The record is a 68-nucleotide sequence from Myripristis murdjan, which matches "MAT2A 3'UTR stem loop F" in Rfam. The family's RNA type in Rfam is cis-regulatory element. It scores 52 bits against the family's covariance model. Pairs were carried over by alignment from the consensus structure, which is taken from published work. Taxonomically the source falls in Myripristis (Eukaryota, Craniata, Neoteleostei, Holocentriformes). Rfam 15.1 lists 403 matches to the family in 255 species.

RNA sequence: CACAGAUGUGGGCAAAAGUUUGGCUGGUGUUGUACAGAGAAACCAGCCUGUUUACAUGCUCACCUGUG
Numbered sequence: 001c002a003c004a005g006a007u008g009u010g011g012g013c014a015a016a017a018g019u020u021u022g023g024c025u026g027g028u029g030u031u032g033u034a035c036a037g038a039g040a041a042a043c044c045a046g047c048c049u050g051u052u053u054a055c056a057u058g059c060u061c062a063c064c065u066g067u068g
Stems, first nucleotide, its partner, number of pairs: 001068005008063001010061004015052002019050001022048007029035002